Record summary:
The family of this 44-nucleotide RNA from Aeromicrobium sp. PE09-221 is "L31-Actinobacteria ribosomal protein leader". A reference for the family is Eckert and Weinberg (2020), "Discovery of 20 novel ribosomal leader candidates in bacteria and archaea", BMC Microbiol.
RNA sequence: CUGGUUCUGGUUCACGAGGCGCGCCGCGGCUCGACCCAGCGACC
Dot-bracket structure: ..(((.((((....((((.(((...))).))))..))))..)))